[Rfam]
RNA sequence: AGCCAGGGAGCAAGAAAAGAUAUCGAUUAAAACAUAUAGUACGGGCAAGCAGGGAGCUAGAACGAUUCGCAGUCAACCCUGGCC
Numbered sequence: 001a002g003c004c005a006g007g008g009a010g011c012a013a014g015a016a017a018a019g020a021u022a023u024c025g026a027u028u029a030a031a032a033c034a035u036a037u038a039g040u041a042c043g044g045g046c047a048a049g050c051a052g053g054g055a056g057c058u059a060g061a062a063c064g065a066u067u068c069g070c071a072g073u074c075a076a077c078c079c080u081g082g083c084c
Stems, first nucleotide, its partner, number of pairs: 002083007
The record is an 84-nucleotide sequence from Lentivirus humimdef1, which matches "HIV gag stem loop 3 (GSL3)" in Rfam. Gene Ontology term of the family: viral RNA genome packaging. Pairs were carried over by alignment from the consensus structure, which was predicted with PFOLD. Rfam's curators put it in the seed alignment. It is annotated as a cis-regulatory element. Rfam's curators write: This family consists of several HIV gag stem loop 3 (GSL3) sequences. GSL3 is known to direct specific packaging of HIV-1 genomic RNA. Deletion of GSL3 leads to decreases in both viral RNA packaging and dimerisation.